The record is a 140-nucleotide sequence from Clunio marinus, which matches "Small nucleolar RNA psi28S-1192" in Rfam.
Rfam 15.1 lists 81 matches to the family in 36 species.
The base pairs follow the family's consensus structure, which was predicted with ILM.
psi28S-1192 is a member of the H/ACA class of snoRNA. This family is responsible for guiding the modification of uridine 1192 to pseudouridine in Drosophila 28S rRNA.
It scores 56 bits against the family's covariance model.
[Rfam]
RNA sequence: UUUACGUCCAUGUUAAUGCUGCGCUCAUUAGUUAAUUAUGAAACGUAGCUUCGCUUGUGGACGACAUCAAACCGCUUUUUUAUCCUGAUGGUUAAAAUCUAAUCAAUUUCUUUCGCAUCGAGAAACGAAAAGCUACAUAA
Numbered sequence: 001u002u003u004a005c006g007u008c009c010a011u012g013u014u015a016a017u018g019c020u021g022c023g024c025u026c027a028u029u030a031g032u033u034a035a036u037u038a039u040g041a042a043a044c045g046u047a048g049c050u051u052c053g054c055u056u057g058u059g060g061a062c063g064a065c066a067u068c069a070a071a072c073c074g075c076u077u078u079u080u081u082a083u084c085c086u087g088a089u090g091g092u093u094a095a096a097a098u099c100u101a102a103u104c105a106a107u108u109u110c111u112u113u114c115g116c117a118u119c120g121a122g123a124a125a126c127g128a129a130a131a132g133c134u135a136c137a138u139a140a
Stems, first nucleotide, its partner, number of pairs: 005063006019048005025042001027039002074133007085122002087119004